[Rfam]
RNA sequence: GGCGGCAACAUCCCCGUCGGUUGGGUGGCGUCAGCCACAGUGAAUCGACUGCAGCC
Numbered sequence: 001g002g003c004g005g006c007a008a009c010a011u012c013c014c015c016g017u018c019g020g021u022u023g024g025g026u027g028g029c030g031u032c033a034g035c036c037a038c039a040g041u042g043a044a045u046c047g048a049c050u051g052c053a054g055c056c
Base pairs, nucleotide, nucleotide: 001056002055003054005052006051007050013042014040016049017048018047019046020045021044022043023041025038026037027036028035029034
RNA: nadA riboswitch
Organism: Silvibacterium bohemicum